Notes
Shown here is a 36-nucleotide RNA from Gillisia limnaea, a member of the family "DUF805b RNA".
RNA sequence: GCAGGGUACGCCGAAAACCUGAACACAGAGUAGGCA
Numbered sequence: 001g002c003a004g005g006g007u008a009c010g011c012c013g014a015a016a017a018c019c020u021g022a023a024c025a026c027a028g029a030g031u032a033g034g035c036a
Stems, first nucleotide, its partner, number of pairs: 002021004010035003

Source information: The organism belongs to Gillisia limnaea, within Bacteria. Pairs were carried over by alignment from the consensus structure, which is taken from published work. By type it is a cis-regulatory element.